[Rfam]
RNA sequence: AUAGGGGAAACCGAAAACCUUAAAGAGAGUAGGUA
Numbered sequence: 001a002u003a004g005g006g007g008a009a010a011c012c013g014a015a016a017a018c019c020u021u022a023a024a025g026a027g028a029g030u031a032g033g034u035a
Stems, first nucleotide, its partner, number of pairs: 003020003010034003